[Rfam]
Shown here is a 59-nucleotide RNA sequence, a member of the family "GP20-b RNA".
The sequence is in the family's curated seed alignment.
Rfam classes the family as a cis-regulatory element.

RNA sequence: UGCCUUGUGCCGGGCGUAAUAAAGGCACACCGCUGGGAAGCAACCCCGUAAAAAGCGUA
Number, nucleotide and partner (000 for none) at each position: 001u016002g015003c014004c013005u000006u000007g000008u027009g026010c025011c024012g000013g004014g003015c002016g001017u000018a000019a000020u000021a000022a000023a000024g011025g010026c009027a008028c000029a000030c000031c000032g000033c000034u048035g047036g046037g045038a000039a000040g000041c000042a000043a000044c000045c037046c036047c035048g034049u000050a000051a000052a000053a000054a000055g000056c000057g000058u000059a000